[Rfam]
RNA sequence: GGAAUCCCGUCUGGGAAGGUCUAGCCAACCACCCGGUAUCCAGCCUUGGGACUGAAGCGGUAACGCCAGGUCUAAGCGUAGGUAGGAAAGGUAGUAGGCCGAAAGCGAAAGCUGAGUAGAAUCCCGAAAUUCCUAAUGGGAAUGGUCGAUGCAUGGGACGAGCAGAAGACAACACUGGGCUUAGCGAUAAAGGCAAGUUAAGUUUGGCGCCCCGGGAUCGAAGGUCU
Numbered sequence: 001g002g003a004a005u006c007c008c009g010u011c012u013g014g015g016a017a018g019g020u021c022u023a024g025c026c027a028a029c030c031a032c033c034c035g036g037u038a039u040c041c042a043g044c045c046u047u048g049g050g051a052c053u054g055a056a057g058c059g060g061u062a063a064c065g066c067c068a069g070g071u072c073u074a075a076g077c078g079u080a081g082g083u084a085g086g087a088a089a090g091g092u093a094g095u096a097g098g099c100c101g102a103a104a105g106c107g108a109a110a111g112c113u114g115a116g117u118a119g120a121a122u123c124c125c126g127a128a129a130u131u132c133c134u135a136a137u138g139g140g141a142a143u144g145g146u147c148g149a150u151g152c153a154u155g156g157g158a159c160g161a162g163c164a165g166a167a168g169a170c171a172a173c174a175c176u177g178g179g180c181u182u183a184g185c186g187a188u189a190a191a192g193g194c195a196a197g198u199u200a201a202g203u204u205u206g207g208c209g210c211c212c213c214g215g216g217a218u219c220g221a222a223g224g225u226c227u
Base pairs, nucleotide, nucleotide: 011036012035013034014033015032018030019029020028022196024194025193039087040086041085043083044082045081046080047078048077049073050072051071052070053069057066058065059064119219121218122217123216124215125214126213138212139211140210143209144208145170146169147168150164151163152162175207176206177205178204179203180202181201182200183199184198185197

A member of the RNA family "Group II catalytic intron D1-D4-6" from Allolucifera butyrica, 227 nucleotides long. Rfam 15.1 lists 1,617 matches to the family in 661 species. Group II introns are found in rRNA, tRNA and mRNA of organelles in fungi, plants and protists, and also in mRNA in bacteria.